[Rfam]
RNA sequence: AUGAUACUGCGACAGUAAUCCAGCUUAGUACGAGAGGAACAGCUGGGUCGGAUACUUGGUUAAUGCCGCUGCCUGAAAAGACAUUGCGGCGAAGCUACCAUCCGCUGGAUUAUGACUGAACGCCUCUAAGUCAGAAUCCAUGCUGGACAUGCAGUGUUGCCCAUCACACUGUUUAUUACAUGAAAAGAAAUAGCCUUCGGGCCCAUUUCAUAUAAUUGCCAUGCCACUCAACGGCGCGGCCUAAAACAAUUUCAAAUAUUCGGUGUGCUAGAUCCUUUGAAGACGACUUAGUUGCAUCAGGGUAUUGUAAGUGUUGAGAGUAGGCUUCGUCUUACGAUCCGCUGAGACAUCCCUUGUUCUAUGAUCUGU
Numbered sequence: 001a002u003g004a005u006a007c008u009g010c011g012a013c014a015g016u017a018a019u020c021c022a023g024c025u026u027a028g029u030a031c032g033a034g035a036g037g038a039a040c041a042g043c044u045g046g047g048u049c050g051g052a053u054a055c056u057u058g059g060u061u062a063a064u065g066c067c068g069c070u071g072c073c074u075g076a077a078a079a080g081a082c083a084u085u086g087c088g089g090c091g092a093a094g095c096u097a098c099c100a101u102c103c104g105c106u107g108g109a110u111u112a113u114g115a116c117u118g119a120a121c122g123c124c125u126c127u128a129a130g131u132c133a134g135a136a137u138c139c140a141u142g143c144u145g146g147a148c149a150u151g152c153a154g155u156g157u158u159g160c161c162c163a164u165c166a167c168a169c170u171g172u173u174u175a176u177u178a179c180a181u182g183a184a185a186a187g188a189a190a191u192a193g194c195c196u197u198c199g200g201g202c203c204c205a206u207u208u209c210a211u212a213u214a215a216u217u218g219c220c221a222u223g224c225c226a227c228u229c230a231a232c233g234g235c236g237c238g239g240c241c242u243a244a245a246a247c248a249a250u251u252u253c254a255a256a257u258a259u260u261c262g263g264u265g266u267g268c269u270a271g272a273u274c275c276u277u278u279g280a281a282g283a284c285g286a287c288u289u290a291g292u293u294g295c296a297u298c299a300g301g302g303u304a305u306u307g308u309a310a311g312u313g314u315u316g317a318g319a320g321u322a323g324g325c326u327u328c329g330u331c332u333u334a335c336g337a338u339c340c341g342c343u344g345a346g347a348c349a350u351c352c353c354u355u356g357u358u359c360u361a362u363g364a365u366c367u368g369u
Base pairs, nucleotide, nucleotide: 003158004157005156006155007154008153009152010151013145014144015143016142018048019047020046021045022044023043024042025041049104050103051102052101053100057097058096059095064091065090066089067088068087070083071082073080074079106140107139108138113133114132115131116130117129166266167265168264169263170262171261270367271366272365273364274363275291276290279287296358298356299355300353301352302351305347311342312341313340317338320335321334322333323332324331
The record is a 369-nucleotide part of an RNA from Chromerida sp. RM11, which matches "Eukaryotic large subunit ribosomal RNA" in Rfam. The family's consensus secondary structure is taken from published work. It is one of the family's seed sequences.